The record is a 191-nucleotide sequence from Megalops atlanticus, which matches "U2 spliceosomal RNA" in Rfam. The base pairs follow the family's consensus structure, which is taken from published work. The family's RNA type in Rfam is spliceosomal small nuclear RNA. The match comes from Rfam's covariance-model search (68 bits).
[Rfam]
RNA sequence: AUUUGUUUGUGCACGUGCCAAUAAAGAAUUAAAAAAAAAAUUCUGUUCUUAUCAGUUUAAUAUCUGAUACGUCCCCAUCGGGGGACCUUAUAUUAAACGGAUUUCUGGGCCAGGGAGUCGAAGAGGGGCUCGUCUGUCCGCUCCAAGCAUCGACUCCGGUAUUGCAGUGCAUCCGGGACCGUGCGCUCCUC
Numbered sequence: 001a002u003u004u005g006u007u008u009g010u011g012c013a014c015g016u017g018c019c020a021a022u023a024a025a026g027a028a029u030u031a032a033a034a035a036a037a038a039a040a041u042u043c044u045g046u047u048c049u050u051a052u053c054a055g056u057u058u059a060a061u062a063u064c065u066g067a068u069a070c071g072u073c074c075c076c077a078u079c080g081g082g083g084g085a086c087c088u089u090a091u092a093u094u095a096a097a098c099g100g101a102u103u104u105c106u107g108g109g110c111c112a113g114g115g116a117g118u119c120g121a122a123g124a125g126g127g128g129c130u131c132g133u134c135u136g137u138c139c140g141c142u143c144c145a146a147g148c149a150u151c152g153a154c155u156c157c158g159g160u161a162u163u164g165c166a167g168u169g170c171a172u173c174c175g176g177g178a179c180c181g182u183g184c185g186c187u188c189c190u191c
Stems, first nucleotide, its partner, number of pairs: 050069006071086006114144005120138002125135002128133001147184004152179001155177005